mir-33 microRNA precursor family: a 69-nucleotide RNA from Mola mola. For this family Rfam cites "MicroRNA transcriptome in the newborn mouse ovaries determined by massive parallel sequencing" (Ahn et al., Mol Hum Reprod, 2010). Rfam links the family to the GO terms RISC complex and gene silencing by miRNA.

RNA sequence: CUGCGGUGCAUUGUAGUUGCAUUGCAUGUGUGUCACAGUGGAGUGCAAUGUAUCUGCAGUGCAGCACAG
Numbered sequence: 001c002u003g004c005g006g007u008g009c010a011u012u013g014u015a016g017u018u019g020c021a022u023u024g025c026a027u028g029u030g031u032g033u034c035a036c037a038g039u040g041g042a043g044u045g046c047a048a049u050g051u052a053u054c055u056g057c058a059g060u061g062c063a064g065c066a067c068a069g
Base pairs, nucleotide, nucleotide: 001069002068003067006065007063008062009061010060011059012058013057014056015055016054019051021049022048023047024046025045026044027043